[Rfam]
RNA sequence: AGUUGUGGUGGUUUUCAUUCUGGCACAUUUGUUAAGUUUUCAAAUGGGCCUGAUUCUGCCACAUAUAUUACAUAGGAGCUGCAAAGGCUGGAUGACAGAGCUAUCUUCCUUUAGCCUUUCCCCAUCAGAGAUUGGCUCCCACAUGU
Numbered sequence: 001a002g003u004u005g006u007g008g009u010g011g012u013u014u015u016c017a018u019u020c021u022g023g024c025a026c027a028u029u030u031g032u033u034a035a036g037u038u039u040u041c042a043a044a045u046g047g048g049c050c051u052g053a054u055u056c057u058g059c060c061a062c063a064u065a066u067a068u069u070a071c072a073u074a075g076g077a078g079c080u081g082c083a084a085a086g087g088c089u090g091g092a093u094g095a096c097a098g099a100g101c102u103a104u105c106u107u108c109c110u111u112u113a114g115c116c117u118u119u120c121c122c123c124a125u126c127a128g129a130g131a132u133u134g135g136c137u138c139c140c141a142c143a144u145g146u
Stems, first nucleotide, its partner, number of pairs: 005062007022050003026046006075139006081088002106131002109128002
Shown here is a 146-nucleotide sequence from Galemys pyrenaicus, a member of the family "Small nucleolar RNA SNORA12". The family's RNA type in Rfam is H/ACA-box small nucleolar RNA. Taxonomically the source falls in Galemys (Eukaryota, Chordata, Tetrapoda, Amniota). The match comes from Rfam's covariance-model search (152 bits). Pairs were carried over by alignment from the consensus structure, which was predicted with RNAalifold. Rfam 15.1 lists 571 matches to the family in 378 species. For this family Rfam cites "A novel experimental approach for systematic identification of box H/ACA snoRNAs from eukaryotes" (Gu et al., Nucleic Acids Res, 2005). From the family's description: U108 belongs to the H/ACA family of snoRNAs.